[Rfam]
RNA sequence: CGAGUAAGCCAGACAAUCGCUGCUGCACAUAAGUGCAGGAGAGGAAAGUCCGAGCUCCAUAGGGCAGGGUGCUGGGUAACUCCCAGUGGAGGCGACUCUAAGGAAAGUGCAACAGAGAUAUACCGCCAUCAGUUUUGAUGGUAAGGGUGGAAAGGCGAGGUAAGAGCUCACCAGCACAUUGGUGACAAUGUGGCUAUGUAAACCCCACUUGGAGCAAGAUCGAAUAGGGAGACUUAUGGGGUGGCCCGUCCCGUCUCCGGGUAAGAUCGCUUGAGCCUAAUUGGCAACAAUAGGCCUAGAUAGAUGAUUGUCUAAGACAGAACUCGGCUUAUAGACUUGCUCGCUUU
Numbered sequence: 001c002g003a004g005u006a007a008g009c010c011a012g013a014c015a016a017u018c019g020c021u022g023c024u025g026c027a028c029a030u031a032a033g034u035g036c037a038g039g040a041g042a043g044g045a046a047a048g049u050c051c052g053a054g055c056u057c058c059a060u061a062g063g064g065c066a067g068g069g070u071g072c073u074g075g076g077u078a079a080c081u082c083c084c085a086g087u088g089g090a091g092g093c094g095a096c097u098c099u100a101a102g103g104a105a106a107g108u109g110c111a112a113c114a115g116a117g118a119u120a121u122a123c124c125g126c127c128a129u130c131a132g133u134u135u136u137g138a139u140g141g142u143a144a145g146g147g148u149g150g151a152a153a154g155g156c157g158a159g160g161u162a163a164g165a166g167c168u169c170a171c172c173a174g175c176a177c178a179u180u181g182g183u184g185a186c187a188a189u190g191u192g193g194c195u196a197u198g199u200a201a202a203c204c205c206c207a208c209u210u211g212g213a214g215c216a217a218g219a220u221c222g223a224a225u226a227g228g229g230a231g232a233c234u235u236a237u238g239g240g241g242u243g244g245c246c247c248g249u250c251c252c253g254u255c256u257c258c259g260g261g262u263a264a265g266a267u268c269g270c271u272u273g274a275g276c277c278u279a280a281u282u283g284g285c286a287a288c289a290a291u292a293g294g295c296c297u298a299g300a301u302a303g304a305u306g307a308u309u310g311u312c313u314a315a316g317a318c319a320g321a322a323c324u325c326g327g328c329u330u331a332u333a334g335a336c337u338u339g340c341u342c343g344c345u346u347u
Stems, first nucleotide, its partner, number of pairs: 001343008010334001011332001012312007020041002023038006046330003050327005055214004062247004067210005072086005087101001088099004102205002107203002109199003123146002125142007154172002157169003174194001175192007218268004228258006238252005275295004280291004
Background: The family of this 347-nucleotide sequence from Clostridium tepidiprofundi is "Bacterial RNase P class A". NCBI's taxonomy places the organism under Bacteria, Bacillati, Eubacteriales, Clostridium, Clostridium tepidiprofundi. From the family's description: Ribonuclease P (RNase P) is a ubiquitous endoribonuclease, found in archaea, bacteria and eukarya as well as chloroplasts and mitochondria. The family's RNA type in Rfam is ribozyme.